[Rfam]
RNA sequence: AAAAAGGGCUUUUGUCAUGAGUGGCACAUGUAGGGCAACUCAAUUGCUCUUCGUGCAAAAUCGACAUCAAGAGAUUUUGGAAACAUAAUUGUUUGGUAGUUGGGCAGCUGGUGAUUGUUGGUCCUGACACAUUU
Dot-bracket structure: .......(.((((((((....)))))((((.(((((((.....))))))).))))(((((((..........)))))))))).).................(.(..(.(((.((((...))))))).).).)..
This 134-nucleotide RNA from Prolemur simus belongs to the Rfam family "U11 spliceosomal RNA". Pairs were carried over by alignment from the consensus structure, which is taken from published work. Taxonomically the source falls in Prolemur (Eukaryota, Gnathostomata, Amniota, Lemuridae).